[Rfam]
RNA: mir-87 microRNA precursor family
Organism: Pomacea canaliculata
RNA sequence: AACUGGCCUGCCUGAAAUUUAUGCUCAAACCUAUCUUGUGAUAAGGUGAGCAAAGUUUCAGGUGUGUUAGAUC
Numbered sequence: 001a002a003c004u005g006g007c008c009u010g011c012c013u014g015a016a017a018u019u020u021a022u023g024c025u026c027a028a029a030c031c032u033a034u035c036u037u038g039u040g041a042u043a044a045g046g047u048g049a050g051c052a053a054a055g056u057u058u059c060a061g062g063u064g065u066g067u068u069a070g071a072u073c
Stems, first nucleotide, its partner, number of pairs: 003070005009064007017056004024050004030046003